[Rfam]
RNA sequence: AUCGCAGCGUUCACUUCAUGACGCACCACUCUUUCGCUUUUUACUAAAGGUUGCCGUGAAAAGGACGCAUCAAUGUGACUUCUUCAAUUUUUGCGGAUUCUGAAUACACGCGC
Numbered sequence: 001a002u003c004g005c006a007g008c009g010u011u012c013a014c015u016u017c018a019u020g021a022c023g024c025a026c027c028a029c030u031c032u033u034u035c036g037c038u039u040u041u042u043a044c045u046a047a048a049g050g051u052u053g054c055c056g057u058g059a060a061a062a063g064g065a066c067g068c069a070u071c072a073a074u075g076u077g078a079c080u081u082c083u084u085c086a087a088u089u090u091u092u093g094c095g096g097a098u099u100c101u102g103a104a105u106a107c108a109c110g111c112g113c
Base pairs, nucleotide, nucleotide: 003077004076005075006074008067009066010065011064012063015060016059017058018057027053028052030050031049032048033047034046101112102111
The family of this 113-nucleotide RNA sequence from Polarella glacialis is "U5 spliceosomal RNA". For this family Rfam cites "The uRNA database" (Zwieb, Nucleic Acids Res, 1997). Pairs were carried over by alignment from the consensus structure, which is taken from published work. Rfam classes the family as a spliceosomal small nuclear RNA.